[Rfam]
RNA sequence: GUUAACCGAUUAAGGGUUCCUUAAGCUUUACAGGUCUUAACUAAGGCUCAUCCAGUCAUCUGGAUUCGAGUGGCUCCUGUCCACUCUGUUUGACGCCUCCCUGUUAAACUCUUCAGAGCCGCCACGAGCGGCUCUUUUUUU
Numbered sequence: 001g002u003u004a005a006c007c008g009a010u011u012a013a014g015g016g017u018u019c020c021u022u023a024a025g026c027u028u029u030a031c032a033g034g035u036c037u038u039a040a041c042u043a044a045g046g047c048u049c050a051u052c053c054a055g056u057c058a059u060c061u062g063g064a065u066u067c068g069a070g071u072g073g074c075u076c077c078u079g080u081c082c083a084c085u086c087u088g089u090u091u092g093a094c095g096c097c098u099c100c101c102u103g104u105u106a107a108a109c110u111c112u113u114c115a116g117a118g119c120c121g122c123c124a125c126g127a128g129c130g131g132c133u134c135u136u137u138u139u140u141u
Base pairs, nucleotide, nucleotide: 001047002046003045006016007015018040022039023038024037025036026033027032051064052063053062054061068086069085070084071083072082073081092105093104094103095102115135116134117133118132119131120130121129122128

The family of this 141-nucleotide RNA sequence from Bauldia litoralis is "Alphaproteobacterial sRNA BjrC1505". The literature on the family includes a 2012 paper in RNA Biol by Madhugiri et al., "Small RNAs of the Bradyrhizobium/Rhodopseudomonas lineage and their analysis".